[Rfam]
Background: SAM/SAH riboswitch aptamer: a 49-nucleotide RNA from Ruegeria sp. ANG-R. Pairs were carried over by alignment from the consensus structure, which is taken from published work. It scores 59 bits against the family's covariance model. On this family, see Weickhmann et al., Nucleic Acids Res 2019: "The structure of the SAM/SAH-binding riboswitch". The source organism's lineage runs through Bacteria, Pseudomonadati, Pseudomonadota, Roseobacteraceae and Ruegeria.

RNA sequence: UGCCCGUCACAACGGCUUCCUGGCGUGAUGGGGAAAUCUUAAUGGAGCA
Numbered sequence: 001u002g003c004c005c006g007u008c009a010c011a012a013c014g015g016c017u018u019c020c021u022g023g024c025g026u027g028a029u030g031g032g033g034a035a036a037u038c039u040u041a042a043u044g045g046a047g048c049a
Base pairs, nucleotide, nucleotide: 004031005030006029007028008027009026010025013022014021015048016047017046019045020044
Record summary: Gene Ontology terms of the family: regulation of gene expression and S-adenosylmethionine metabolic process.